c-di-GMP-I riboswitch aptamer: a 101-nucleotide RNA sequence from Salipaludibacillus agaradhaerens. For this family Rfam cites "Identification of 22 candidate structured RNAs in bacteria using the CMfinder comparative genomics pipeline" (Weinberg et al., Nucleic Acids Res, 2007). A search with the family's covariance model found it, with a score of 76 bits.

RNA sequence: UCUAGUCAACGGCAAAUCUAUUGAAAAAUAGAGACGCAAAGUUACAGGUCUAAGGAGAGUUAAAGGGGUUUACCUCUCUCUAUGAUGGCUGAACUGCCUAG
Numbered sequence: 001u002c003u004a005g006u007c008a009a010c011g012g013c014a015a016a017u018c019u020a021u022u023g024a025a026a027a028a029u030a031g032a033g034a035c036g037c038a039a040a041g042u043u044a045c046a047g048g049u050c051u052a053a054g055g056a057g058a059g060u061u062a063a064a065g066g067g068g069u070u071u072a073c074c075u076c077u078c079u080c081u082a083u084g085a086u087g088g089c090u091g092a093a094c095u096g097c098c099u100a101g
Base pairs, nucleotide, nucleotide: 012037013036017032018031019030020029021028022027040095041094042093043092045091046090047089048086049085050084055080056079057078058077